[Rfam]
RNA sequence: UACAGAGUAGGUAUUUGUGCGUUAAGUGUUAAAAGGACGGGAAGUUGCCUUUUAAACGAAAAACUUUUAUAAAGUUUGCGGUACAUCUACUGCAUUCCGCUGUU
Numbered sequence: 001u002a003c004a005g006a007g008u009a010g011g012u013a014u015u016u017g018u019g020c021g022u023u024a025a026g027u028g029u030u031a032a033a034a035g036g037a038c039g040g041g042a043a044g045u046u047g048c049c050u051u052u053u054a055a056a057c058g059a060a061a062a063a064c065u066u067u068u069a070u071a072a073a074g075u076u077u078g079c080g081g082u083a084c085a086u087c088u089a090c091u092g093c094a095u096u097c098c099g100c101u102g103u104u
Stems, first nucleotide, its partner, number of pairs: 002103004010091004016085004020080003026057002029055008040097003044093001061077006

The family of this 104-nucleotide RNA sequence from Clostridium sp. SM-530-WT-3G is "THF (Tetrahydrofolate) riboswitch aptamer". About the family: Tetrahydrofolate (THF) riboswitch was first reported for Ames et al. as an RNA motif in 5' untranslated (5'-UTR)regions of folate transport and biosynthesis genes in Firmicutes genomes. NCBI's taxonomy places the organism under Bacteria, Bacillati, Bacillota, Eubacteriales, Clostridium. Rfam 15.1 lists 747 matches to the family in 747 species. A reference for the family is Ames et al. (2010), "A eubacterial riboswitch class that senses the coenzyme tetrahydrofolate", Chem Biol.